Rfam assigns this 84-nucleotide RNA from Chlorocebus sabaeus to the family "mir-548 microRNA precursor family". On this family, see Witten et al., BMC Biol 2010: "Ultra-high throughput sequencing-based small RNA discovery and discrete statistical biomarker analysis in a collection of cervical tumours and matched controls". NCBI's taxonomy places the organism under Eukaryota, Craniata, Sarcopterygii, Eutheria, Chlorocebus.
RNA sequence: UAUUAGGCUGGUGCAAAAGUAACUGUGGUUUUUCCCAUUGAAAUUAAUGGCAAAAACUGCAAUUACUUUUGCACCAGCCUAAUA
Numbered sequence: 001u002a003u004u005a006g007g008c009u010g011g012u013g014c015a016a017a018a019g020u021a022a023c024u025g026u027g028g029u030u031u032u033u034c035c036c037a038u039u040g041a042a043a044u045u046a047a048u049g050g051c052a053a054a055a056a057c058u059g060c061a062a063u064u065a066c067u068u069u070u071g072c073a074c075c076a077g078c079c080u081a082a083u084a
Base pairs, nucleotide, nucleotide: 001084002083003082004081005080006079007078008077009076010075011074012073013072014071015070016069017068018067019066020065021064022063024061025060026059027058028057029056030055031054032053033052035050036049037048038047039046040045